[Rfam]
RNA sequence: CCGUACUUAGAUAAAAGGUUGUAAUUAACGCUUUGCUCCAUAUGGAGAAUUUUGUUGAUUACUUUGAAUUUAAGUAUGAUGUUGUGUUUGCAUAUUGGUCUAGGAAACUAGACAAGAGUAACUAAGUUACUCGUUUCACUUCCUGUAUAUUUUGAACCUCUUAUUUGGUUUGUGACCGCCUACUUUAGGCGGUUUUUUUAUAU
Numbered sequence: 001c002c003g004u005a006c007u008u009a010g011a012u013a014a015a016a017g018g019u020u021g022u023a024a025u026u027a028a029c030g031c032u033u034u035g036c037u038c039c040a041u042a043u044g045g046a047g048a049a050u051u052u053u054g055u056u057g058a059u060u061a062c063u064u065u066g067a068a069u070u071u072a073a074g075u076a077u078g079a080u081g082u083u084g085u086g087u088u089u090g091c092a093u094a095u096u097g098g099u100c101u102a103g104g105a106a107a108c109u110a111g112a113c114a115a116g117a118g119u120a121a122c123u124a125a126g127u128u129a130c131u132c133g134u135u136u137c138a139c140u141u142c143c144u145g146u147a148u149a150u151u152u153u154g155a156a157c158c159u160c161u162u163a164u165u166u167g168g169u170u171u172g173u174g175a176c177c178g179c180c181u182a183c184u185u186u187a188g189g190c191g192g193u194u195u196u197u198u199u200a201u202a203u
Base pairs, nucleotide, nucleotide: 009070010069012067015064016063021062022061023060024059025058026057027056028055029054030053096115098113099112100111101110102109103108117131118130119129120128121127122126147171149169150168151167172196174194175193176192177191178190179189
Record summary
This 203-nucleotide RNA from Otariodibacter oris belongs to the Rfam family "GcvB RNA". By type it is a non-coding RNA gene. The source organism's lineage runs through Bacteria, Pseudomonadati, Pasteurellales, Pasteurellaceae and Otariodibacter. The gcvB gene encodes a small untranslated RNA involved in expression of the dipeptide and oligopeptide transport systems in Escherichia coli. Included several unknown homologues in alignment (Bateman A pers obs).